[Rfam]
RNA sequence: AAAGCAAGAUUGUGUGUAUCGAUGUGGUGCUCUAAUCAAUGCACUUCUAGUCGUUGCAAUACCAAAUUUUGGGGAAGGUGGGCAGUUGUGUUUCACUUUAGAUUGAUAUUUCAACAAUCAUCCACAUCACAGGA
Number, nucleotide and partner (000 for none) at each position: 001a000002a000003a000004g057005c056006a055007a054008g052009a051010u000011u000012g000013u000014g044015u043016g042017u041018a040019u039020c000021g000022a000023u000024g000025u000026g000027g000028u000029g000030c000031u000032c000033u000034a000035a000036u000037c000038a000039a019040u018041g017042c016043a015044c014045u000046u000047c000048u000049a000050g000051u009052c008053g000054u007055u006056g005057c004058a000059a000060u000061a000062c000063c000064a000065a000066a000067u000068u000069u000070u000071g128072g127073g000074g125075a000076a000077g122078g121079u120080g119081g118082g000083c000084a000085g115086u114087u113088g112089u000090g000091u000092u000093u000094c000095a000096c000097u000098u000099u000100a000101g000102a000103u000104u000105g000106a000107u000108a000109u000110u000111u000112c088113a087114a086115c085116a000117a000118u081119c080120a079121u078122c077123c000124a000125c074126a000127u072128c071129a000130c000131a000132g000133g000134a000
RNA: small nucleolar RNA snoR135